The family of this 131-nucleotide sequence from Castor canadensis is "Small nucleolar RNA SNORA51". From the family's description: ACA51 is a member of the H/ACA class of snoRNA that guide the sites of modification of uridines to pseudouridines.
RNA sequence: GGCCUUCUGGUGCUUACCCCAAGCUGUGUUCUCACAGUGACUAUAUAGAAAGAGGAGGCAAAGUGAACCUACCCCACAUACAUCUCAGCCCAGGCCCUGUGCCUGGUCUGUAUUGUGAAUGGGAGGCAUGG
Numbered sequence: 001g002g003c004c005u006u007c008u009g010g011u012g013c014u015u016a017c018c019c020c021a022a023g024c025u026g027u028g029u030u031c032u033c034a035c036a037g038u039g040a041c042u043a044u045a046u047a048g049a050a051a052g053a054g055g056a057g058g059c060a061a062a063g064u065g066a067a068c069c070u071a072c073c074c075c076a077c078a079u080a081c082a083u084c085u086c087a088g089c090c091c092a093g094g095c096c097c098u099g100u101g102c103c104u105g106g107u108c109u110g111u112a113u114u115g116u117g118a119a120u121g122g123g124a125g126g127c128a129u130g131g
Stems, first nucleotide, its partner, number of pairs: 002059007021042001027036003073123004086110003090106006
Dot-bracket structure: .(((((((............(.....(((....))).....)..........))))))).............((((.........(((.((((((.....)))))).))).........))))........
The match comes from Rfam's covariance-model search (120 bits). The family has 9 seed sequences and 2,121 matches in Rfam 15.1. Gene Ontology terms of the family: nucleolus and RNA processing.